[Rfam]
RNA: Small nucleolar RNA SNORD121A
RNA sequence: GUCCAAAAUACAGUGAUAUAUUCUUUACCAAGCACAUAUUUGCUUGUUCUGUGUGGAAAACGACUGUUGCUGGGUGAUUUUGAAU
Numbered sequence: 001g002u003c004c005a006a007a008a009u010a011c012a013g014u015g016a017u018a019u020a021u022u023c024u025u026u027a028c029c030a031a032g033c034a035c036a037u038a039u040u041u042g043c044u045u046g047u048u049c050u051g052u053g054u055g056g057a058a059a060a061c062g063a064c065u066g067u068u069g070c071u072g073g074g075u076g077a078u079u080u081u082g083a084a085u
Stems, first nucleotide, its partner, number of pairs: 001085002004082003008078002010075002